RNA sequence: AUAGCAAGUUCAAGGCCAUAGCAAAAGUGCUCAUGGCACUGCUUGUCAGGUUCCAAAGAAAUCUGCAAAUUGUGCU
Numbered sequence: 001a002u003a004g005c006a007a008g009u010u011c012a013a014g015g016c017c018a019u020a021g022c023a024a025a026a027g028u029g030c031u032c033a034u035g036g037c038a039c040u041g042c043u044u045g046u047c048a049g050g051u052u053c054c055a056a057a058g059a060a061a062u063c064u065g066c067a068a069a070u071u072g073u074g075c076u
Base pairs, nucleotide, nucleotide: 015042016041020076021075022074023073025071026070027039028038029037047065048064049063050062051061052060
Annotation:
Mammalian CPEB3 ribozyme: a 76-nucleotide RNA from Alligator mississippiensis. The organism belongs to Alligator, within Eukaryota.